[Rfam]
Shown here is a 62-nucleotide RNA sequence from Staphylococcus gallinarum, a member of the family "Bacillus-plasmid RNA".
Pairs were carried over by alignment from the consensus structure, which is taken from published work.
The family's RNA type in Rfam is small RNA.
Nucleotides: 062
Stems, first nucleotide, its partner, number of pairs: 001053009
Number, partner (000 for none) and nucleotide at each position: 001053u002052g003051u004050g005049u006048c007047a008046a009045c010000g011000g012000u013000a014000a015000c016000g017000g018000a019000a020000u021000g022000a023000a024000c025000g026000u027000a028000g029000u030000g031000a032000a033000u034000g035000a036000g037000u038000a039000u040000a041000a042000g043000g044000a045009g046008u047007u048006g049005a050004u051003a052002c053001a054000c055000u056000u057000a058000c059000u060000c061000a062000u